Notes: A member of the RNA family "Small nucleolar RNA snoR26" from Sorghum bicolor, 95 nucleotides long. For this family Rfam cites "Multiple snoRNA gene clusters from Arabidopsis" (Brown et al., RNA, 2001). It scores 58 bits against the family's covariance model. The base pairs follow the family's consensus structure, which was predicted with WAR.

RNA sequence: AUGGCAUCAAUGAUGUUACAUCCAUAUAUUUACUCAUCCUUGCACUAUGAGCUGCGCGAUGAAGAAAUCAGUGGGGAAAGUUGCCUGAGAUGCUU
Numbered sequence: 001a002u003g004g005c006a007u008c009a010a011u012g013a014u015g016u017u018a019c020a021u022c023c024a025u026a027u028a029u030u031u032a033c034u035c036a037u038c039c040u041u042g043c044a045c046u047a048u049g050a051g052c053u054g055c056g057c058g059a060u061g062a063a064g065a066a067a068u069c070a071g072u073g074g075g076g077a078a079a080g081u082u083g084c085c086u087g088a089g090a091u092g093c094u095u
Stems, first nucleotide, its partner, number of pairs: 003094006